This 78-nucleotide sequence from Croceibacterium atlanticum belongs to the Rfam family "Makes More Granules Regulator RNA (mmgR)".
[Rfam]
RNA sequence: CGAAACUGCCUUUCAGGCAUCCUCUCCCAAAACUUCCAAGGCCUGGCCGGCAACGGCCGGGCCUUUUUUCUUUCCGGC
Numbered sequence: 001c002g003a004a005a006c007u008g009c010c011u012u013u014c015a016g017g018c019a020u021c022c023u024c025u026c027c028c029a030a031a032a033c034u035u036c037c038a039a040g041g042c043c044u045g046g047c048c049g050g051c052a053a054c055g056g057c058c059g060g061g062c063c064u065u066u067u068u069u070c071u072u073u074c075c076g077g078c
Base pairs, nucleotide, nucleotide: 008018009017010016011015040063041062042061043060044059045058046057047056048055

Overview: For this family Rfam cites "Evidence for a second class of S-adenosylmethionine riboswitches and other regulatory RNA motifs in alpha-proteobacteria" (Corbino et al., Genome Biol, 2005).